[Rfam]
RNA sequence: UGGCGAAUAACAGGGAAAUUCUCCUUUGGCAUAAGAGAACUGCACUGUCAUCCAUGCAAAUGUUGAGGUUGUUCUUGCUUACGCCAAAGGAGAAUUGCCCUGCCAUUCGCUU
Numbered sequence: 001u002g003g004c005g006a007a008u009a010a011c012a013g014g015g016a017a018a019u020u021c022u023c024c025u026u027u028g029g030c031a032u033a034a035g036a037g038a039a040c041u042g043c044a045c046u047g048u049c050a051u052c053c054a055u056g057c058a059a060a061u062g063u064u065g066a067g068g069u070u071g072u073u074c075u076u077g078c079u080u081a082c083g084c085c086a087a088a089g090g091a092g093a094a095u096u097g098c099c100c101u102g103c104c105a106u107u108c109g110c111u112u
Base pairs, nucleotide, nucleotide: 005108006107007106008105011102012101013100014099015098017096018095019094021092022091023090024089027086028085029084030083032081033080034079035078
The record is a 112-nucleotide RNA sequence from Eucalyptus grandis, which matches "mir-399 microRNA precursor family" in Rfam. For this family Rfam cites "Computational Identification of Plant MicroRNAs and Their Targets, Including a Stress-Induced miRNA" (Jones-Rhoades and Bartel, Mol Cell, 2004). Its family is annotated with miRNA-mediated post-transcriptional gene silencing and RISC complex in the Gene Ontology. It scores 62 bits against the family's covariance model.